[Rfam]
RNA sequence: CAAAUCUCGAUGGGAGAACUGUUCCGCCCGAUUUGGCGGCACAGUGCCGAAGGCGCAACCGCCCCGGAAACGCUCAGGCCCACGGACCGUCGAGGGGUA
Numbered sequence: 001c002a003a004a005u006c007u008c009g010a011u012g013g014g015a016g017a018a019c020u021g022u023u024c025c026g027c028c029c030g031a032u033u034u035g036g037c038g039g040c041a042c043a044g045u046g047c048c049g050a051a052g053g054c055g056c057a058a059c060c061g062c063c064c065c066g067g068a069a070a071c072g073c074u075c076a077g078g079c080c081c082a083c084g085g086a087c088c089g090u091c092g093a094g095g096g097g098u099a
Stems, first nucleotide, its partner, number of pairs: 006094008019044004046079003049075002053073003059067002
A member of the RNA family "Glycine riboswitch aptamer" from Sagittula marina, 99 nucleotides long. Gene Ontology term of the family: glycine biosynthetic process. This family represents the bacterial glycine riboswitch. Lineage of the source: Bacteria > Pseudomonadota > Rhodobacterales > Roseobacteraceae > Sagittula.